The record is a 135-nucleotide sequence from Apteryx owenii, which matches "Small nucleolar RNA SNORA57" in Rfam. The source organism's lineage runs through Eukaryota, Chordata, Gnathostomata, Apterygidae and Apteryx. A search with the family's covariance model found it, with a score of 101 bits. About the family: U99 belongs to the H/ACA class of snoRNAs which are thought to guide the sites of modification of uridines to pseudouridines, the target for this family is unknown. Its family is annotated with RNA processing and nucleolus in the Gene Ontology. For this family Rfam cites "Identification of 13 novel human modification guide RNAs" (Vitali et al., Nucleic Acids Res, 2003).
RNA sequence: CCUCCCGUUCUUGGCGGGCCCGGGCGGCGCGGUGCCCGGGCCCGUGAUGUGCGGAGGCAGAGCAACGCCCGGCGCGAAGUCUUCGGUGCCUGCGGCCUCCCUCCGCCGGUCCUAUCCUCGCGCGCCGGGACACGC
Numbered sequence: 001c002c003u004c005c006c007g008u009u010c011u012u013g014g015c016g017g018g019c020c021c022g023g024g025c026g027g028c029g030c031g032g033u034g035c036c037c038g039g040g041c042c043c044g045u046g047a048u049g050u051g052c053g054g055a056g057g058c059a060g061a062g063c064a065a066c067g068c069c070c071g072g073c074g075c076g077a078a079g080u081c082u083u084c085g086g087u088g089c090c091u092g093c094g095g096c097c098u099c100c101c102u103c104c105g106c107c108g109g110u111c112c113u114a115u116c117c118u119c120g121c122g123c124g125c126c127g128g129g130a131c132a133c134g135c
Stems, first nucleotide, its partner, number of pairs: 001057005015044006022037004070127006089109002092106004